[Rfam]
RNA sequence: GCGAGACACAGAGCCCAGUGGCCGGAAGCGACCGAUAAACUGGUGGCGGUACAUGCCGGGCGCAGCUCCCGGCGGUUCCGCCAAUGAAUAGCCAGCAGCCGCUGCAACCCCAGGGAG
Numbered sequence: 001g002c003g004a005g006a007c008a009c010a011g012a013g014c015c016c017a018g019u020g021g022c023c024g025g026a027a028g029c030g031a032c033c034g035a036u037a038a039a040c041u042g043g044u045g046g047c048g049g050u051a052c053a054u055g056c057c058g059g060g061c062g063c064a065g066c067u068c069c070c071g072g073c074g075g076u077u078c079c080g081c082c083a084a085u086g087a088a089u090a091g092c093c094a095g096c097a098g099c100c101g102c103u104g105c106a107a108c109c110c111c112a113g114g115g116a117g
Stems, first nucleotide, its partner, number of pairs: 048079002051076002056072005093104004

Overview: A member of the RNA family "Streptomyces-metK RNA" from Streptomyces sp. YIM 130001, 117 nucleotides long. The family's RNA type in Rfam is small RNA.